RNA sequence: AAUUACUUCUUCGAUAUAAAACAUUUGUGUCGAUAAAAUGAUUUGAGCCCCUU
Numbered sequence: 001a002a003u004u005a006c007u008u009c010u011u012c013g014a015u016a017u018a019a020a021a022c023a024u025u026u027g028u029g030u031c032g033a034u035a036a037a038a039u040g041a042u043u044u045g046a047g048c049c050c051c052u053u
Stems, first nucleotide, its partner, number of pairs: 011033007
RNA: Plastid-atpF group II-D1 intron
Organism: Hibiscus trionum